The family of this 49-nucleotide sequence from Shimia thalassica is "SAM/SAH riboswitch aptamer".
The organism belongs to Shimia, within Bacteria.
Rfam links the family to the GO terms S-adenosylmethionine metabolic process and regulation of gene expression.

RNA sequence: CUGUCGUCACAACGGCUUCCUGGCGUGACGAUCAAUACCCAGUGGAGCA
Numbered sequence: 001c002u003g004u005c006g007u008c009a010c011a012a013c014g015g016c017u018u019c020c021u022g023g024c025g026u027g028a029c030g031a032u033c034a035a036u037a038c039c040c041a042g043u044g045g046a047g048c049a
Base pairs, nucleotide, nucleotide: 004031005030006029007028008027009026010025013022014021015048016047017046019045020044